[Rfam]
RNA: Pseudomonas sRNA CrcZ
RNA sequence: ACAACAAAAAUAACAAGACACAUCUGAUAACAAGAACAAGACAACGGCUCUAGCAUAAGAAAGACAAAAACGCAGAGACGCAGCUAACUGAUUUCUUUGGAGAGGACCGCCCUCGGGCUUGUACCGCAACCGGGUCGAGAACAAUAAAACUGCUUUGCAAGGCAGCGACAGACGGGUUGGAUCUACGGAUCACGGCAACAUCAGCGUCCAAACAAAUCCGUUCGCUCUUGGCCUCGCUUGGAGGCCUUGGCUAAAACAAGAACAACAGGCCAGUAGUACUAAUAAGAACGACGAUACGAACAAGACUUGGGGGAGCUUCGGCUCCCCCUUCUGCUUUCUGGCGUUUAUGCCGACUUC
Numbered sequence: 001a002c003a004a005c006a007a008a009a010a011u012a013a014c015a016a017g018a019c020a021c022a023u024c025u026g027a028u029a030a031c032a033a034g035a036a037c038a039a040g041a042c043a044a045c046g047g048c049u050c051u052a053g054c055a056u057a058a059g060a061a062a063g064a065c066a067a068a069a070a071c072g073c074a075g076a077g078a079c080g081c082a083g084c085u086a087a088c089u090g091a092u093u094u095c096u097u098u099g100g101a102g103a104g105g106a107c108c109g110c111c112c113u114c115g116g117g118c119u120u121g122u123a124c125c126g127c128a129a130c131c132g133g134g135u136c137g138a139g140a141a142c143a144a145u146a147a148a149a150c151u152g153c154u155u156u157g158c159a160a161g162g163c164a165g166c167g168a169c170a171g172a173c174g175g176g177u178u179g180g181a182u183c184u185a186c187g188g189a190u191c192a193c194g195g196c197a198a199c200a201u202c203a204g205c206g207u208c209c210a211a212a213c214a215a216a217u218c219c220g221u222u223c224g225c226u227c228u229u230g231g232c233c234u235c236g237c238u239u240g241g242a243g244g245c246c247u248u249g250g251c252u253a254a255a256a257c258a259a260g261a262a263c264a265a266c267a268g269g270c271c272a273g274u275a276g277u278a279c280u281a282a283u284a285a286g287a288a289c290g291a292c293g294a295u296a297c298g299a300a301c302a303a304g305a306c307u308u309g310g311g312g313g314a315g316c317u318u319c320g321g322c323u324c325c326c327c328c329u330u331c332u333g334c335u336u337u338c339u340g341g342c343g344u345u346u347a348u349g350c351c352g353a354c355u356u357c
Stems, first nucleotide, its partner, number of pairs: 045080002048077004096212004108206003127179005133173001150165005231245005248272004291336001293334001309328008